Description:
A member of the RNA family "U11 spliceosomal RNA" from Dendrobium nobile, 126 nucleotides long. Lineage of the source: Eukaryota > Viridiplantae > Streptophyta > Embryophyta > Dendrobium. Rfam 15.1 lists 2,595 matches to the family in 1,202 species. The base pairs follow the family's consensus structure, which is taken from published work. A search with the family's covariance model found it, with a score of 49 bits.
[Rfam]
RNA sequence: AAAAAGAGUCGGUUGGCUAUGUAUGCGACGCACAUCUUGUAAUUGAUGGGUGUUGUAUGGUUAUCAAGACAUAUGGCCGACAUAAUUAUGGAUGGUAUAGAGUUGACUUGCUUGGUUAACCCUUUU
Numbered sequence: 001a002a003a004a005a006g007a008g009u010c011g012g013u014u015g016g017c018u019a020u021g022u023a024u025g026c027g028a029c030g031c032a033c034a035u036c037u038u039g040u041a042a043u044u045g046a047u048g049g050g051u052g053u054u055g056u057a058u059g060g061u062u063a064u065c066a067a068g069a070c071a072u073a074u075g076g077c078c079g080a081c082a083u084a085a086u087u088a089u090g091g092a093u094g095g096u097a098u099a100g101a102g103u104u105g106a107c108u109u110g111c112u113u114g115g116u117u118a119a120c121c122c123u124u125u126u
Stems, first nucleotide, its partner, number of pairs: 008081005014028001016026002029052003033048004053076007099123002102120007